[Rfam]
Shown here is a 92-nucleotide sequence from Apium graveolens, a member of the family "Small nucleolar RNA snoR8a". Pairs were carried over by alignment from the consensus structure, which was predicted with WAR. The family has 7 seed sequences and 956 matches in Rfam 15.1.
RNA sequence: AUGGUUGCGGUGAUUAUAAAAGUAAUUCCUCGUACUGAAUGCUUAAUUUGGGCAUGACAGACUCAUAUUACACCCAUAGAAUAUGAGCAACC
Numbered sequence: 001a002u003g004g005u006u007g008c009g010g011u012g013a014u015u016a017u018a019a020a021a022g023u024a025a026u027u028c029c030u031c032g033u034a035c036u037g038a039a040u041g042c043u044u045a046a047u048u049u050g051g052g053c054a055u056g057a058c059a060g061a062c063u064c065a066u067a068u069u070a071c072a073c074c075c076a077u078a079g080a081a082u083a084u085g086a087g088c089a090a091c092c
Stems, first nucleotide, its partner, number of pairs: 003092002006089002